[Rfam]
RNA sequence: ACCACUAAGCCAUCUCUCCAGCCCUUGGAUAGCUUUUAAUUACAAAAAGAAGUAGGGGCUGGAGAGAUGGCUUAGUGGU
Numbered sequence: 001a002c003c004a005c006u007a008a009g010c011c012a013u014c015u016c017u018c019c020a021g022c023c024c025u026u027g028g029a030u031a032g033c034u035u036u037u038a039a040u041u042a043c044a045a046a047a048a049g050a051a052g053u054a055g056g057g058g059c060u061g062g063a064g065a066g067a068u069g070g071c072u073u074a075g076u077g078g079u
Base pairs, nucleotide, nucleotide: 002078003077004076005075006074007073008072009071010070011069012068013067014066015065016064017063018062019061020060021059022058023057024056
Record summary: The family of this 79-nucleotide sequence from Jaculus jaculus is "mir-3473 microRNA precursor family". The organism belongs to Jaculus, within Eukaryota. The base pairs follow the family's consensus structure, which was predicted with RNAalifold. The family has 5 seed sequences and 1,094 matches in Rfam 15.1. It scores 76 bits against the family's covariance model.